Rfam assigns this 144-nucleotide RNA sequence from Flavobacterium agri to the family "Flavo-1 RNA".
[Rfam]
RNA sequence: ACUUAGCCCGGAUGGACGCGGCUAGCCUUUUGCAGAAAAAGUCUUCGUUUUAUCUGGAUGCGGAAGCGACCGACGGAAGCUCUUCGCAUACGGUAUAAAACCAGAUUUUUUCAAGAAAGCUAGUAGCGGACAGCCGGAACAAGC
Numbered sequence: 001a002c003u004u005a006g007c008c009c010g011g012a013u014g015g016a017c018g019c020g021g022c023u024a025g026c027c028u029u030u031u032g033c034a035g036a037a038a039a040a041g042u043c044u045u046c047g048u049u050u051u052a053u054c055u056g057g058a059u060g061c062g063g064a065a066g067c068g069a070c071c072g073a074c075g076g077a078a079g080c081u082c083u084u085c086g087c088a089u090a091c092g093g094u095a096u097a098a099a100a101c102c103a104g105a106u107u108u109u110u111u112c113a114a115g116a117a118a119g120c121u122a123g124u125a126g127c128g129g130a131c132a133g134c135c136g137g138a139a140c141a142a143g144c
Base pairs, nucleotide, nucleotide: 009136010135011134013132014131018127019126023122024121025120026119029117030116031115
It is annotated as a small RNA. The source organism's lineage runs through Bacteria, Pseudomonadati, Bacteroidota, Flavobacteriaceae and Flavobacterium.